[Rfam]
RNA sequence: GGAGGGAAAGGGGCCGGUGCCCCCCGCGGGCCGCAAACCCGUUGGCCGGUCCGGACGACCGGGGUUGGGUUCGACUCCCACUUCCCUCC
Dot-bracket structure: ((((((((.(((((....))))).((((((.......))))).).(((((.......)))))...((((.......)))).))))))))
This 89-nucleotide RNA from Thermodesulfitimonas autotrophica belongs to the Rfam family "Selenocysteine transfer RNA".
Rfam links the family to the GO term triplet codon-amino acid adaptor activity.